[Rfam]
RNA sequence: CGCGGUCCUCGGUAGUGACCUCCGGACGAUUCUGAAAAGAGUUCCGUGGGUCUCGAUCGAAGGCCGGG
Numbered sequence: 001c002g003c004g005g006u007c008c009u010c011g012g013u014a015g016u017g018a019c020c021u022c023c024g025g026a027c028g029a030u031u032c033u034g035a036a037a038a039g040a041g042u043u044c045c046g047u048g049g050g051u052c053u054c055g056a057u058c059g060a061a062g063g064c065c066g067g068g
Stems, first nucleotide, its partner, number of pairs: 001068001003066005009060005017052005023046004029042005

The record is a 68-nucleotide RNA from Psychromicrobium lacuslunae, which matches "Actino-pnp RNA" in Rfam.